The record is a 71-nucleotide RNA from filamentous cyanobacterium CCP5, which matches "Glutamine riboswitch aptamer (glnA leader)" in Rfam. Its family is annotated with glutamine binding in the Gene Ontology. It scores 52 bits against the family's covariance model. NCBI's taxonomy places the organism under Bacteria, Bacillati, Cyanobacteriota.
[Rfam]
RNA sequence: UUCGUUCAUCUCGAGCCGCUAUGCCGGUUGUUGAGACGGAAGUAGGGCCGUUGCGCCCGAAGGAACGCACU
Numbered sequence: 001u002u003c004g005u006u007c008a009u010c011u012c013g014a015g016c017c018g019c020u021a022u023g024c025c026g027g028u029u030g031u032u033g034a035g036a037c038g039g040a041a042g043u044a045g046g047g048c049c050g051u052u053g054c055g056c057c058c059g060a061a062g063g064a065a066c067g068c069a070c071u
Stems, first nucleotide, its partner, number of pairs: 003067005009036005039068001045058003
On this family, see Ames and Breaker, RNA Biol 2011: "Bacterial aptamers that selectively bind glutamine".